Overview:
This 89-nucleotide RNA belongs to the Rfam family "c-di-GMP-II-GAG riboswitch aptamer". A reference for the family is Weinberg et al. (2017), "Bioinformatic analysis of riboswitch structures uncovers variant classes with altered ligand specificity", Proc Natl Acad Sci U S A. Rfam's curators put it in the seed alignment. Rfam links the family to the GO terms regulation of gene expression and cyclic-di-GMP binding.
RNA sequence: CAACACGGUAGAGGCCAAGAACCCCGCCCUACGGAAGACGGGCACCCGACAGGGCCUGGGGAGCCAGUGGUGCGACCGGCUACCGUUUA
Number, nucleotide and partner (000 for none) at each position: 001c000002a000003a088004c000005a086006c085007g084008g083009u082010a081011g080012a000013g065014g064015c063016c000017a000018a000019g000020a000021a000022c059023c058024c000025c000026g055027c054028c053029c052030u000031a000032c000033g000034g000035a000036a000037g000038a000039c000040g077041g076042g073043c072044a071045c070046c069047c000048g000049a000050c000051a000052g029053g028054g027055c026056c000057u000058g023059g022060g000061g000062a000063g015064c014065c013066a000067g000068u000069g046070g045071u044072g043073c042074g000075a000076c041077c040078g000079g000080c011081u010082a009083c008084c007085g006086u005087u000088u003089a000